[Rfam]
RNA sequence: CAGAUCACCUCAAAUCGAAGCACUGAUGACUGUUUCCUACAUAAGUGCUUCUUUUUGGGGUUGUCUUG
Numbered sequence: 001c002a003g004a005u006c007a008c009c010u011c012a013a014a015u016c017g018a019a020g021c022a023c024u025g026a027u028g029a030c031u032g033u034u035u036c037c038u039a040c041a042u043a044a045g046u047g048c049u050u051c052u053u054u055u056u057g058g059g060g061u062u063g064u065c066u067u068g
Base pairs, nucleotide, nucleotide: 004064005063007061008060009059010058011057014055017051018050019049020048021047022046023045024044026042027041028040
RNA: miR-430 microRNA precursor family